Annotation: The family of this 215-nucleotide RNA from Sphingomonas spermidinifaciens is "permuted transfer-messenger RNA". On this family, see Williams and Bartel, RNA 1996: "Phylogenetic analysis of tmRNA secondary structure". Taxonomically the source falls in Sphingomonas (Bacteria, Pseudomonadati, Alphaproteobacteria, Sphingomonadaceae). Its family is annotated with RNA catabolic process in the Gene Ontology. A search with the family's covariance model found it, with a score of 131 bits. The base pairs follow the family's consensus structure, which is taken from published work.
RNA sequence: GGCGAUAAAAUGUAGCGUACAAUAGGCGCAGCGGACCCGGGGGCAGUACCCGGCGGCUCCACCAGAAAUGGUGGUGGAUCUGGACACCGUUUCUGACGGGGCCGAACCAGGAUCGACGUGUGUUGAAAAGCGCUGCUUUCGCCCGGAAUGGGACCACCGCAACGGCCCAUCUCACAAGUGCCAACGAUAACGAGGCGCUCGCGAUUGCGGCCUAA
Numbered sequence: 001g002g003c004g005a006u007a008a009a010a011u012g013u014a015g016c017g018u019a020c021a022a023u024a025g026g027c028g029c030a031g032c033g034g035a036c037c038c039g040g041g042g043g044c045a046g047u048a049c050c051c052g053g054c055g056g057c058u059c060c061a062c063c064a065g066a067a068a069u070g071g072u073g074g075u076g077g078a079u080c081u082g083g084a085c086a087c088c089g090u091u092u093c094u095g096a097c098g099g100g101g102c103c104g105a106a107c108c109a110g111g112a113u114c115g116a117c118g119u120g121u122g123u124u125g126a127a128a129a130g131c132g133c134u135g136c137u138u139u140c141g142c143c144c145g146g147a148a149u150g151g152g153a154c155c156a157c158c159g160c161a162a163c164g165g166c167c168c169a170u171c172u173c174a175c176a177a178g179u180g181c182c183a184a185c186g187a188u189a190a191c192g193a194g195g196c197g198c199u200c201g202c203g204a205u206u207g208c209g210g211c212c213u214a215a
Base pairs, nucleotide, nucleotide: 001143002142003141004140005139015133016132017131018130027122028121029120031119032118033117037053038052039051040050041049054104055103056102057101058100059099060098144159145158146157